[Rfam]
RNA sequence: GCUACAGACCUGGGGGCCAUAGCAGAAGUAUUCACGUUGUGACCCCUGUCAUGUAAUACCAGGUAACACCUGCUAAUUAUGCU
Numbered sequence: 001g002c003u004a005c006a007g008a009c010c011u012g013g014g015g016g017c018c019a020u021a022g023c024a025g026a027a028g029u030a031u032u033c034a035c036g037u038u039g040u041g042a043c044c045c046c047u048g049u050c051a052u053g054u055a056a057u058a059c060c061a062g063g064u065a066a067c068a069c070c071u072g073c074u075a076a077u078u079a080u081g082c083u
Stems, first nucleotide, its partner, number of pairs: 013046004018041001021083004026078002028040003050072002053069002